[Rfam]
Nucleotides: 092
Base pairs, nucleotide, nucleotide: 012037013036017032018031019030020029021028022027040086041085042084043083047082048081049078050077051076056073057072058071059070
Number, partner (000 for none) and nucleotide at each position: 001000u002000u003000u004000c005000g006000a007000u008000u009000a010000g011000g012037g013036c014000a015000a016000a017032c018031a019030c020029a021028c022027c023000g024000a025000a026000a027022g028021g029020u030019g031018u032017g033000g034000a035000c036013g037012c038000a039000a040086a041085a042084c043083u044000a045000g046000a047082g048081g049078g050077g051076c052000u053000u054000a055000c056073g057072u058071a059070g060000c061000g062000g063000u064000g065000a066000u067000u068000a069000g070059c071058u072057a073056c074000a075000u076051g077050c078049c079000a080000g081048c082047c083043a084042g085041u086040u087000g088000c089000c090000g091000a092000u
Shown here is a 92-nucleotide RNA sequence from Ammoniphilus oxalaticus, a member of the family "c-di-GMP-I riboswitch aptamer".